[Rfam]
RNA: Small nucleolar RNA ZL2
RNA sequence: GGCCUCAAGUGAUGAAGAAAUGACUUUGGGAGGACAGUGACCAAACUGGGUCGUAUUCGUACUGUCUGAUGGGGUC
Number, nucleotide and partner (000 for none) at each position: 001g076002g075003c074004c073005u072006c071007a070008a000009g000010u000011g066012a065013u064014g063015a000016a000017g000018a000019a060020a057021u000022g000023a054024c053025u050026u049027u000028g047029g046030g000031a000032g000033g042034a000035c000036a000037g000038u000039g000040a000041c000042c033043a000044a000045a000046c029047u028048g000049g026050g025051u000052c000053g024054u023055a000056u000057u020058c000059g000060u019061a000062c000063u014064g013065u012066c011067u000068g000069a000070u007071g006072g005073g004074g003075u002076c001